[Rfam]
A member of the RNA family "Small nucleolar RNA SNORD42" from Felis catus, 49 nucleotides long.
RNA sequence: GUGCAAAUGCUGGAAAAGACUGACAUGGACAAAGGAACCACUGAUGUGC
Numbered sequence: 001g002u003g004c005a006a007a008u009g010c011u012g013g014a015a016a017a018g019a020c021u022g023a024c025a026u027g028g029a030c031a032a033a034g035g036a037a038c039c040a041c042u043g044a045u046g047u048g049c
Base pairs, nucleotide, nucleotide: 001049002048003047004046005045
Dot-bracket structure: (((((.......................................)))))
The source organism's lineage runs through Eukaryota, Opisthokonta, Metazoa, Mammalia and Felis. From the family's description: snoRNA U42 is found in intron 3 of the ribosomal protein L23a (RPL23a) gene in humans and is also present in mice.